[Rfam]
RNA sequence: UCUGUGGUUUAGGUAGUUUCAUGUUGUUGGGGCUCCACCUUUCUCUCUACAGCACGAAACUGCCUUAAUUACCAG
Dot-bracket structure: ...((((((.(((((((((..((((((.(((.............))).))))))..))))))))).))))))...